[Rfam]
RNA sequence: AGGCACUCCCUUUACUCGGAUCGUCCGGCACGUUCCUGCCGGUGAAGGAGACAGAA
Numbered sequence: 001a002g003g004c005a006c007u008c009c010c011u012u013u014a015c016u017c018g019g020a021u022c023g024u025c026c027g028g029c030a031c032g033u034u035c036c037u038g039c040c041g042g043u044g045a046a047g048g049a050g051a052c053a054g055a056a
Stems, first nucleotide, its partner, number of pairs: 008048002011046004025042006